[Rfam]
RNA sequence: AUCUUUAAGCAGAGGCCGUCCGCUUCUCACCUUACUACCAGGUGUACGUAAGGUUACCAAUAGAGUCUUUGGGUAUUGAUUUUAUUGAGGCGGAUGUGUAUGCAUUCGCCUUUUUUGUGUUAA
Numbered sequence: 001a002u003c004u005u006u007a008a009g010c011a012g013a014g015g016c017c018g019u020c021c022g023c024u025u026c027u028c029a030c031c032u033u034a035c036u037a038c039c040a041g042g043u044g045u046a047c048g049u050a051a052g053g054u055u056a057c058c059a060a061u062a063g064a065g066u067c068u069u070u071g072g073g074u075a076u077u078g079a080u081u082u083u084a085u086u087g088a089g090g091c092g093g094a095u096g097u098g099u100a101u102g103c104a105u106u107c108g109c110c111u112u113u114u115u116u117g118u119g120u121u122a123a
Stems, first nucleotide, its partner, number of pairs: 011027006029054003034049002037045002089110009